[Rfam]
RNA sequence: UAUCAGUGUUGCCAUGAGCAACAUCUAGUUCAUUUUGUUAUUCAGUGUUCACUUUGAUAUAUGCUACUUUCUGGAAGGAUGGGUUUUAAGUGGUUCCUCUCCUCUAUCCCAAUUCUGAAUCUAGCUGGCAAGUAGAAAACAAUGCAUAUAAUAAGUGAUAACUGUGGAAGUAU
Numbered sequence: 001u002a003u004c005a006g007u008g009u010u011g012c013c014a015u016g017a018g019c020a021a022c023a024u025c026u027a028g029u030u031c032a033u034u035u036u037g038u039u040a041u042u043c044a045g046u047g048u049u050c051a052c053u054u055u056g057a058u059a060u061a062u063g064c065u066a067c068u069u070u071c072u073g074g075a076a077g078g079a080u081g082g083g084u085u086u087u088a089a090g091u092g093g094u095u096c097c098u099c100u101c102c103u104c105u106a107u108c109c110c111a112a113u114u115c116u117g118a119a120u121c122u123a124g125c126u127g128g129c130a131a132g133u134a135g136a137a138a139a140c141a142a143u144g145c146a147u148a149u150a151a152u153a154a155g156u157g158a159u160a161a162c163u164g165u166g167g168a169a170g171u172a173u
Stems, first nucleotide, its partner, number of pairs: 023173002030167003034164001037162006046059004061147004070111001073109003082105002088098001090096001113137005121132002

The record is a 173-nucleotide sequence from Ictidomys tridecemlineatus, which matches "Beta-globin co-transcriptional cleavage ribozyme" in Rfam.
Rfam's curators write: Transcription termination of RNA polymerase II transcripts is proposed to occur by a two stage process. The first stage involves pre-termination cleavage (PTC) of the nascent transcript downstream of the poly(A) site. This process is also referred to as co-transcriptional cleavage (CoTC). The CoTC process in the human beta-globin gene has been shown to involve an RNA self-cleaving activity located in the 3' flanking region of the beta-globin gene. This Rfam model represents the catalytic core of the beta-globin CoTC ribozyme. The CoTC core is highly conserved in the 3' flanking regions of other primate beta-globin genes. Functionally, this CoTC ribozyme resembles the 3' processive, self-cleaving ribozymes described for the protein-encoding genes from the myxomycetes Didymium iridis and Physarum polycephalum.
It scores 66 bits against the family's covariance model.
The literature on the family includes a 2004 paper in Nature by Teixeira et al., "Autocatalytic RNA cleavage in the human beta-globin pre-mRNA promotes transcription termination".